The family of this 144-nucleotide RNA from Chunga burmeisteri is "U12 minor spliceosomal RNA".
A search with the family's covariance model found it, with a score of 105 bits.
The family has 62 seed sequences and 2,106 matches in Rfam 15.1.
The pairing is the family consensus, mapped onto this sequence.
The family's RNA type in Rfam is spliceosomal small nuclear RNA.
Gene Ontology terms of the family: U12 snRNP, pre-mRNA branch point binding and mRNA branch site recognition.
The organism belongs to Chunga, within Eukaryota.
Nucleotides: 144
Base pairs, nucleotide, nucleotide: 004023005022006021007020008019032053033052034051035050036049037048038047039046054070055069056068057067058066087144088143091142092141093140095138096137102130103129104128105127106126108124109123110122112120
Number, partner (000 for none) and nucleotide at each position: 001000a002000u003000g004023c005022c006021u007020u008019a009000a010000a011000c012000u013000u014000a015000u016000g017000a018000g019008u020007a021006a022005g023004g024000a025000a026000a027000a028000u029000a030000a031000c032053g033052a034051c035050c036049c037048g038047g039046g040000g041000u042000g043000a044000c045000g046039c047038c048037c049036g050035g051034g052033u053032c054070c055069u056068c057067a058066c059000u060000g061000c062000c063000a064000a065000c066058g067057u068056g069055a070054g071000a072000g073000g074000a075000a076000u077000u078000u079000u080000u081000g082000u083000g084000u085000g086000g087144g088143g089000a090000c091142a092141g093140g094000u095138g096137g097000c098000c099000c100000c101000a102130g103129g104128g105127u106126g107000c108124c109123c110122c111000c112120c113000u114000u115000a116000c117000g118000u119000c120112g121000u122110g123109g124108g125000a126106u127105g128104c129103c130102c131000g132000c133000u134000u135000u136000a137096u138095u139000u140093u141092c142091u143088u144087u